[Rfam]
RNA sequence: GGGGUUGUACUGGUUUCGACGGGGGUUGUGCAGCUAUGGAAGCCAUUGGCGGCUCCUGACCGCCUCAUCAACGGGAACAAUAAAUAUAAACGCUGAAGAUAAUUUAGCAAUCGCUGCCUAGUUGCAGCAGUCGGCCUUAGAUCACCCACAGUUUAAGUAACCGGCUUCGACGAUGUGGGAAACGACAUAUCCUAAGCUUUGCGGAUAUGGGCGUAUCAUGAAGCUACUAAAACCGAAAGCCUGUCAUUCGGCGUUCGGCAGAGGGAAUGAGAAAGGAAUGACUGUAAUGGGAGAUGCCAUAGUGAAUUGACUUUCGGACAGGGGUUCGAUUCCCCUCAGCUCCACUU
Numbered sequence: 001g002g003g004g005u006u007g008u009a010c011u012g013g014u015u016u017c018g019a020c021g022g023g024g025g026u027u028g029u030g031c032a033g034c035u036a037u038g039g040a041a042g043c044c045a046u047u048g049g050c051g052g053c054u055c056c057u058g059a060c061c062g063c064c065u066c067a068u069c070a071a072c073g074g075g076a077a078c079a080a081u082a083a084a085u086a087u088a089a090a091c092g093c094u095g096a097a098g099a100u101a102a103u104u105u106a107g108c109a110a111u112c113g114c115u116g117c118c119u120a121g122u123u124g125c126a127g128c129a130g131u132c133g134g135c136c137u138u139a140g141a142u143c144a145c146c147c148a149c150a151g152u153u154u155a156a157g158u159a160a161c162c163g164g165c166u167u168c169g170a171c172g173a174u175g176u177g178g179g180a181a182a183c184g185a186c187a188u189a190u191c192c193u194a195a196g197c198u199u200u201g202c203g204g205a206u207a208u209g210g211g212c213g214u215a216u217c218a219u220g221a222a223g224c225u226a227c228u229a230a231a232a233c234c235g236a237a238a239g240c241c242u243g244u245c246a247u248u249c250g251g252c253g254u255u256c257g258g259c260a261g262a263g264g265g266a267a268u269g270a271g272a273a274a275g276g277a278a279u280g281a282c283u284g285u286a287a288u289g290g291g292a293g294a295u296g297c298c299a300u301a302g303u304g305a306a307u308u309g310a311c312u313u314u315c316g317g318a319c320a321g322g323g324g325u326u327c328g329a330u331u332c333c334c335c336u337c338a339g340c341u342c343c344a345c346u347u
Base pairs, nucleotide, nucleotide: 001343002342003341004340005339006338007337020316021315022314023313024312025311026310027309028308033303034302035301036300037299038298039297041295043290044289045288046287047286049066051064052063054076055075056074057073058072113128114127115126116125117124129166130165131164132163133162134161136157137156138155139154140153141152142151145179146178147177148176149175150174186209187208188207189206190205191204195225196224197223198222199221200220227264228263233258234257235256236255239252240251241250243282244281245280246279247277248276249275320336321335322334323333324332